[Rfam]
RNA sequence: CCUCCCAUGUUCAGAAACGAGCAUGGAGUAAGAGAUCACUCUUCAACAUCCUUUGAAUUGCUGGAAUUUCCUAAAGCUCAUUCAACCACAACGUAAAAGCGAAUAGCUUUAAGCGUGAAGGUGACGAAAGUAGAAAAAAUGAAUGAGAUGGCAUAUGGUUAAAUCCUAAGUGCUAGGACAAUGGAUCAUCAGCAGGUAAGCCUCGAAUAGAGGAAACUUCAACGACUAUCCUAAAUAGGAGUAGGCUAUAAGCGAUUGAUAGCCGAAGCGGAGGAUACCCUUCUACUUUAUAAAAGGGUAAUGAUAUAGUCUGCACUCAUAUGAAAAUAUGAG
Numbered sequence: 001c002c003u004c005c006c007a008u009g010u011u012c013a014g015a016a017a018c019g020a021g022c023a024u025g026g027a028g029u030a031a032g033a034g035a036u037c038a039c040u041c042u043u044c045a046a047c048a049u050c051c052u053u054u055g056a057a058u059u060g061c062u063g064g065a066a067u068u069u070c071c072u073a074a075a076g077c078u079c080a081u082u083c084a085a086c087c088a089c090a091a092c093g094u095a096a097a098a099g100c101g102a103a104u105a106g107c108u109u110u111a112a113g114c115g116u117g118a119a120g121g122u123g124a125c126g127a128a129a130g131u132a133g134a135a136a137a138a139a140u141g142a143a144u145g146a147g148a149u150g151g152c153a154u155a156u157g158g159u160u161a162a163a164u165c166c167u168a169a170g171u172g173c174u175a176g177g178a179c180a181a182u183g184g185a186u187c188a189u190c191a192g193c194a195g196g197u198a199a200g201c202c203u204c205g206a207a208u209a210g211a212g213g214a215a216a217c218u219u220c221a222a223c224g225a226c227u228a229u230c231c232u233a234a235a236u237a238g239g240a241g242u243a244g245g246c247u248a249u250a251a252g253c254g255a256u257u258g259a260u261a262g263c264c265g266a267a268g269c270g271g272a273g274g275a276u277a278c279c280c281u282u283c284u285a286c287u288u289u290a291u292a293a294a295a296g297g298g299u300a301a302u303g304a305u306a307u308a309g310u311c312u313g314c315a316c317u318c319a320u321a322u323g324a325a326a327a328u329a330u331g332a333g
Base pairs, nucleotide, nucleotide: 005026006025007024008023009022010021011020012019048276049275050274051273052272054270055269059194060193061192062191063190064189069185070184071183195218196217201212203210222312224311225310226309227308228307278298279297280296281295282294284292285291318331319330320329321328322327
Group I catalytic intron: a 333-nucleotide RNA sequence from Turicibacter sp. H121.
It scores 83 bits against the family's covariance model.
Rfam 15.1 lists 5,602 matches to the family in 1,395 species.